The record is a 79-nucleotide sequence, which matches "RybB RNA" in Rfam.
Rfam's curators put it in the seed alignment.
On this family, see Wassarman et al., Genes Dev 2001: "Identification of novel small RNAs using comparative genomics and microarrays".
Pairs were carried over by alignment from the consensus structure, which was predicted with PFOLD.
Rfam describes the family as follows. This ncRNA was identified in a large scale screen of E. coli. The function of this short RNA is unknown. The exact 5' and 3' ends of this RNA are uncertain.
[Rfam]
RNA sequence: ACUGCUUUUCUUUGAUGUCCCCAUUUUGUGGAGCCCGAUAAUCCCGCCUUUUAGGUUCAAGAUUAUCGGGUUUUUUGUU
Number, nucleotide and partner (000 for none) at each position: 001a000002c000003u000004g000005c000006u000007u000008u000009u000010c000011u000012u000013u000014g000015a000016u000017g000018u000019c000020c000021c000022c000023a000024u000025u000026u000027u000028g000029u000030g000031g000032a072033g071034c070035c069036c068037g067038a066039u065040a064041a063042u062043c061044c000045c000046g000047c000048c000049u000050u000051u000052u000053a000054g000055g000056u000057u000058c000059a000060a000061g043062a042063u041064u040065a039066u038067c037068g036069g035070g034071u033072u032073u000074u000075u000076u000077g000078u000079u000